[Rfam]
Background: A member of the RNA family "permuted transfer-messenger RNA" from Roseovarius gahaiensis, 214 nucleotides long. From the family's description: Bacterial tmRNA, also known as 10Sa RNA or SsrA, is named for its dual tRNA and mRNA-like properties. Its role is to liberate the mRNA from a stalled ribosome.
RNA sequence: GGACAUAAACGCGCUCGUAAUACGCGGAUCGGACCCGGGGGCGGUACCCGGCGGCUCCACCAAAAAACCUUUCGUUGAAGGUGGUUAUGGGGCCGAAAUAGGAUCGACGAACGUCUAAAGGGGUUAGCUUUGUCUCGGUGAGAUACCACCGUUAUCGGUUCGCUAAAGCAUAAUUGCCAACGACAAUAAUGCUCCGGUCGCCGUUGCUGCGUAA
Numbered sequence: 001g002g003a004c005a006u007a008a009a010c011g012c013g014c015u016c017g018u019a020a021u022a023c024g025c026g027g028a029u030c031g032g033a034c035c036c037g038g039g040g041g042c043g044g045u046a047c048c049c050g051g052c053g054g055c056u057c058c059a060c061c062a063a064a065a066a067a068c069c070u071u072u073c074g075u076u077g078a079a080g081g082u083g084g085u086u087a088u089g090g091g092g093c094c095g096a097a098a099u100a101g102g103a104u105c106g107a108c109g110a111a112c113g114u115c116u117a118a119a120g121g122g123g124u125u126a127g128c129u130u131u132g133u134c135u136c137g138g139u140g141a142g143a144u145a146c147c148a149c150c151g152u153u154a155u156c157g158g159u160u161c162g163c164u165a166a167a168g169c170a171u172a173a174u175u176g177c178c179a180a181c182g183a184c185a186a187u188a189a190u191g192c193u194c195c196g197g198u199c200g201c202c203g204u205u206g207c208u209g210c211g212u213a214a
Stems, first nucleotide, its partner, number of pairs: 001135005013124004025113002029110003035051005052095007136151004
Rfam classes the family as a non-coding RNA gene. For this family Rfam cites "Probing the structure of the Escherichia coli 10Sa RNA (tmRNA)" (Felden et al., RNA, 1997). Gene Ontology term of the family: RNA catabolic process.